[Rfam]
RNA sequence: AACAUGCUCCCUUAGAUCCACCUUUGUGGAAGUCCGCUUAUGCUGAGUCCUGCUAAUUGCACGUUUUGGGCUUUUAGCCGUUCCAGCUAAGACGACCAGCAACUUUUUUGGUUGUACAGUCAAAGGUGCUUGAGUCAUUGGCAUGUGAGACUAAUAUACCUGCACAUUUGUCUUGGCAUUUUGAUGGCCGUGGUUUCACAACCACUUGCCACCAUCAGAAUAUUGCAUAUGUGCGGACAUG
Number, nucleotide and partner (000 for none) at each position: 001a000002a146003c145004a144005u143006g142007c141008u140009c000010c000011c134012u133013u132014a131015g130016a000017u000018c000019c128020a127021c126022c125023u124024u123025u122026g121027u098028g097029g096030a000031a000032g093033u000034c000035c000036g000037c091038u090039u089040a088041u000042g087043c086044u085045g084046a000047g083048u000049c000050c080051u000052g078053c077054u000055a000056a074057u000058u000059g071060c070061a000062c068063g000064u000065u000066u000067u000068g062069g000070g060071c059072u000073u000074u056075u000076a000077g053078c052079c000080g050081u000082u000083c047084c045085a044086g043087c042088u040089a039090a038091g037092a000093c032094g000095a000096c029097c028098a027099g115100c114101a113102a112103c111104u110105u000106u000107u000108u000109u000110g104111g103112u102113u101114g100115u099116a000117c000118a000119g000120u000121c026122a025123a024124a023125g022126g021127u020128g019129c000130u015131u014132g013133a012134g011135u000136c000137a000138u000139u000140g008141g007142c006143a005144u004145g003146u002147g000148a000149g000150a000151c000152u000153a000154a000155u000156a000157u000158a000159c000160c236161u235162g234163c233164a232165c000166a000167u229168u000169u227170g226171u225172c000173u000174u000175g000176g000177c000178a000179u000180u219181u218182u217183g216184a215185u214186g213187g212188c000189c000190g000191u211192g210193g209194u000195u000196u000197c000198a000199c000200a000201a000202c000203c000204a000205c000206u000207u000208g000209c193210c192211a191212c187213c186214a185215u184216c183217a182218g181219a180220a000221u000222a000223u000224u000225g171226c170227a169228u000229a167230u000231g000232u164233g163234c162235g161236g160237a000238c000239a000240u000241g000

The record is a 241-nucleotide sequence from Xenopus laevis, which matches "Small nucleolar RNA SNORA53" in Rfam. From the family's description: The snoRNA ACA53 belongs to the H/ACA family of pseudouridylation guide snoRNAs. The organism belongs to Xenopus, within Eukaryota. By type it is an H/ACA-box small nucleolar RNA.